The record is a 95-nucleotide RNA from Peribacillus faecalis, which matches "Guanidine-I riboswitch aptamer" in Rfam. NCBI's taxonomy places the organism under Bacteria, Bacillati, Bacillota, Bacilli, Peribacillus. The pairing is the family consensus, mapped onto this sequence. Rfam's curators write: This family represents a conserved RNA structure found upstream of the ykkC and yxkD genes in Bacillus subtilis and related genes in other bacteria.

Nucleotides: 095
Base pairs, nucleotide, nucleotide: 007049008048009047010046011045012044015039016038020036021035022033023030024029051068052067053066054065055064056063057062070090072093076088077087078086
Number, partner (000 for none) and nucleotide at each position: 001000g002000c003000a004000a005000a006000u007049g008048u009047u010046u011045u012044c013000u014000a015039g016038g017000g018000u019000u020036c021035c022033g023030c024029a025000a026000a027000a028000u029024u030023g031000g032000u033022c034000u035021g036020g037000u038016c039015c040000g041000a042000g043000a044012g045011a046010a047009a048008a049007c050000u051068c052067a053066c054065a055064g056063c057062a058000g059000c060000g061000u062057u063056g064055u065054u066053g067052u068051g069000u070090c071000a072093c073000g074000g075000a076088a077087g078086g079000a080000u081000a082000a083000a084000a085000g086078c087077c088076u089000g090070g091000g092000a093072g094000a095000u